[Rfam]
RNA sequence: AAAAAUAUAAAUAAUAACCCUCAUAUAAUAAUGGGAAUAUGGCCCAUAAGUUUCUACCCGGUAACCGUAAAUAACUGGACUAUGAGGGAAAGUGAAUGAAAA
Numbered sequence: 001a002a003a004a005a006u007a008u009a010a011a012u013a014a015u016a017a018c019c020c021u022c023a024u025a026u027a028a029u030a031a032u033g034g035g036a037a038u039a040u041g042g043c044c045c046a047u048a049a050g051u052u053u054c055u056a057c058c059c060g061g062u063a064a065c066c067g068u069a070a071a072u073a074a075c076u077g078g079a080c081u082a083u084g085a086g087g088g089a090a091a092g093u094g095a096a097u098g099a100a101a102a
Stems, first nucleotide, its partner, number of pairs: 018088008029049001031047005058078005064072001

Shown here is a 102-nucleotide sequence from Bacillus sp. B1-b2, a member of the family "Purine riboswitch aptamer".
The match comes from Rfam's covariance-model search (97 bits).